[Rfam]
This 130-nucleotide RNA from Streptomyces nitrosporeus belongs to the Rfam family "Streptomyces RNA 5676". About the family: Identified by deep sequencing of transcriptome at the end of exponential growth phase. On this family, see Vockenhuber et al., RNA Biol 2011: "Deep sequencing-based identification of small non-coding RNAs in Streptomyces coelicolor".
RNA sequence: CGAUGAGAGAAACACCCCGCCCGCGGGAGACCGCGGACGGCGCCGGGCCGGGGCUCCCCCCGCACCGUCCCGGCGGCGCCUCGGCGCACACCGCUGGAGCAUCGCGCUCCGGAACUCCUCACCGACCGGA
Numbered sequence: 001c002g003a004u005g006a007g008a009g010a011a012a013c014a015c016c017c018c019g020c021c022c023g024c025g026g027g028a029g030a031c032c033g034c035g036g037a038c039g040g041c042g043c044c045g046g047g048c049c050g051g052g053g054c055u056c057c058c059c060c061c062g063c064a065c066c067g068u069c070c071c072g073g074c075g076g077c078g079c080c081u082c083g084g085c086g087c088a089c090a091c092c093g094c095u096g097g098a099g100c101a102u103c104g105c106g107c108u109c110c111g112g113a114a115c116u117c118c119u120c121a122c123c124g125a126c127c128g129g130a
Stems, first nucleotide, its partner, number of pairs: 004121004009117002017040003021036006042074006049067003053063002076089001078087002094112007122129002